This 84-nucleotide RNA from Ceutorhynchus assimilis belongs to the Rfam family "mir-2944 microRNA precursor family".
The organism belongs to Ceutorhynchus, within Eukaryota.
RNA sequence: GUCUGUUACAGAGAAGGAACUACUGGUGUGAUUUGUGUUUUGGAUACUCAUAUCACAGCCAUUAGUUACUUCCUUGUGGCAGUA
Numbered sequence: 001g002u003c004u005g006u007u008a009c010a011g012a013g014a015a016g017g018a019a020c021u022a023c024u025g026g027u028g029u030g031a032u033u034u035g036u037g038u039u040u041u042g043g044a045u046a047c048u049c050a051u052a053u054c055a056c057a058g059c060c061a062u063u064a065g066u067u068a069c070u071u072c073c074u075u076g077u078g079g080c081a082g083u084a
Stems, first nucleotide, its partner, number of pairs: 003082008015071003018067004024061001025059001027057006034050002